[Rfam]
RNA sequence: GAAACCCUACCAGGUAAUGCCUAACCAGUAGCCUGUACCAAGUCCUUGGAGUCGAAACGGUAACGUUAGAUUUAAGCGUAGGACAGGGGAGCCGAAACGCAAGUGAAGCUAUUGAGCCACAAAAUAAUUAUAUAAACGAAGAGGUCGAUGCUGUUAUGUAGGUCGCAGACAAUAUUCUAUAAAUCGUAACGGUGAGAAUUAUAGAACUCUUCCGGGGUCUGAGGGAU
Numbered sequence: 001g002a003a004a005c006c007c008u009a010c011c012a013g014g015u016a017a018u019g020c021c022u023a024a025c026c027a028g029u030a031g032c033c034u035g036u037a038c039c040a041a042g043u044c045c046u047u048g049g050a051g052u053c054g055a056a057a058c059g060g061u062a063a064c065g066u067u068a069g070a071u072u073u074a075a076g077c078g079u080a081g082g083a084c085a086g087g088g089g090a091g092c093c094g095a096a097a098c099g100c101a102a103g104u105g106a107a108g109c110u111a112u113u114g115a116g117c118c119a120c121a122a123a124a125u126a127a128u129u130a131u132a133u134a135a136a137c138g139a140a141g142a143g144g145u146c147g148a149u150g151c152u153g154u155u156a157u158g159u160a161g162g163u164c165g166c167a168g169a170c171a172a173u174a175u176u177c178u179a180u181a182a183a184u185c186g187u188a189a190c191g192g193u194g195a196g197a198a199u200u201a202u203a204g205a206a207c208u209c210u211u212c213c214g215g216g217g218u219c220u221g222a223g224g225g226a227u
Stems, first nucleotide, its partner, number of pairs: 011035004018030003022195001024193002038087002042084001044082003047078002049073005055067001057066003113221001114219001116218003120214001138212006144170003150163003175206008184197002
RNA: Group II catalytic intron D1-D4-6
Organism: Clostridium sp. DL-VIII